[Rfam]
RNA: Small nucleolar RNA R30/Z108
Organism: Apium graveolens
RNA sequence: GAAGAUUGCGAUGAUGAUAGCUAAGCUCCCUCUUCUUAAUUAAUGUUGAGGACACUCGCUGGCUGAAUCGAACCAUAUAAUAUCUGCCAACACUGAGUAA
Number, nucleotide and partner (000 for none) at each position: 001g000002a000003a000004g000005a000006u100007u099008g098009c097010g000011a000012u000013g000014a000015u000016g000017a000018u000019a000020g000021c000022u000023a000024a000025g000026c000027u000028c000029c000030c000031u000032c000033u000034u000035c000036u000037u000038a000039a000040u000041u000042a000043a000044u000045g000046u000047u000048g000049a000050g000051g000052a000053c000054a000055c000056u000057c000058g000059c000060u000061g000062g000063c000064u000065g000066a000067a000068u000069c000070g000071a000072a000073c000074c000075a000076u000077a000078u000079a000080a000081u000082a000083u000084c000085u000086g000087c000088c000089a000090a000091c000092a000093c000094u000095g000096a000097g009098u008099a007100a006